[Rfam]
RNA: Small nucleolar RNA SNORD111
Nucleotides: 082
Stems, first nucleotide, its partner, number of pairs: 002081004
Number, partner (000 for none) and nucleotide at each position: 001000c002081a003080g004079c005078c006000u007000g008000a009000a010000a011000u012000g013000a014000u015000g016000c017000u018000g019000u020000g021000a022000a023000u024000u025000c026000a027000u028000g029000u030000c031000u032000c033000u034000u035000c036000u037000c038000u039000g040000a041000g042000g043000u044000g045000u046000a047000c048000g049000g050000u051000g052000g053000a054000g055000a056000c057000a058000a059000c060000u061000a062000g063000a064000u065000g066000a067000a068000u069000u070000u071000c072000u073000g074000a075000u076000c077000a078005g079004g080003c081002u082000u